[Rfam]
SAM (S-adenosyl methionine) riboswitch aptamer: a 109-nucleotide RNA sequence from Branchiibius sp. NY16-3462-2. Its Rfam clan is "SAM clan". About the family: SAM-IV is a mRNA element that regulates gene expression via direct sensing of S-adenosylmethionine (SAM or AdoMet). SAM-IV riboswitches share conserved nucleotide positions with the previously described SAM-I riboswitches sequence analysis and molecular recognition experiments suggest that SAM-I and SAM-IV riboswitches share similar ligand binding sites, but have different scaffolds.

RNA sequence: GGUCAAGAGUUCCAGCGACAAGCCCCGGCUAGCUGGACGGCAACCCUCCUCGCGGUGGGGUGCCCCGGGUGAGGACAAGGCCGGAUCAGGUGUCCGGCAACCGCGGGGC
Numbered sequence: 001g002g003u004c005a006a007g008a009g010u011u012c013c014a015g016c017g018a019c020a021a022g023c024c025c026c027g028g029c030u031a032g033c034u035g036g037a038c039g040g041c042a043a044c045c046c047u048c049c050u051c052g053c054g055g056u057g058g059g060g061u062g063c064c065c066c067g068g069g070u071g072a073g074g075a076c077a078a079g080g081c082c083g084g085a086u087c088a089g090g091u092g093u094c095c096g097g098c099a100a101c102c103g104c105g106g107g108g109c
Stems, first nucleotide, its partner, number of pairs: 002076003009038001011037006021030002039064003044060003048055002080098007